[Rfam]
RNA sequence: GGUUUCAAUUGGUGUAAAUUCAAUCACCUAAAUAUAAGAUGAUAAGAAAUUCUCCAUUGGUAACAAAUAGUUAUACAUUAAGCGGAGGAAAUCUUAU
Dot-bracket structure: ........((((.......))))............................((((((..(((((.....)))))..)).....))))..........
A member of the RNA family "Plastid-rps12 3UTR RNA" from Solanum lycopersicum, 97 nucleotides long. Plastid rpl20 is a non-coding RNA (ncRNA) recognised in plastids. It was found in the three prime untranslated region (3UTR) of rps12 gene, its 3UTR location sugest a role in transcript maduration. On this family, see Richter et al., Plant Commun 2023: "Retrograde signaling in plants: A critical review focusing on the GUN pathway and beyond". It is annotated as a cis-regulatory element.